The family of this 102-nucleotide sequence from Sporomusa termitida is "Purine riboswitch aptamer".
[Rfam]
Nucleotides: 102
Base pairs, nucleotide, nucleotide: 018088019087020086021085022084023083024082025081030048031047032046033045034044035043058078060076061075062074063073064072
Number, partner (000 for none) and nucleotide at each position: 001000a002000u003000a004000c005000a006000a007000g008000u009000a010000a011000a012000u013000c014000a015000a016000u017000a018088u019087g020086c021085u022084c023083g024082u025081a026000u027000a028000u029000a030048u031047u032046u033045g034044a035043g036000g037000a038000u039000a040000u041000g042000g043035c044034u045033c046032a047031a048030a049000a050000g051000u052000c053000u054000c055000u056000a057000c058078c059000u060076g061075g062074c063073g064072a065000c066000c067000g068000u069000a070000a071000a072064u073063c074062g075061c076060c077000c078058g079000a080000c081025u082024a083023c084022g085021a086020g087019u088018g089000a090000a091000a092000g093000u094000g095000c096000g097000c098000c099000u100000a101000g102000g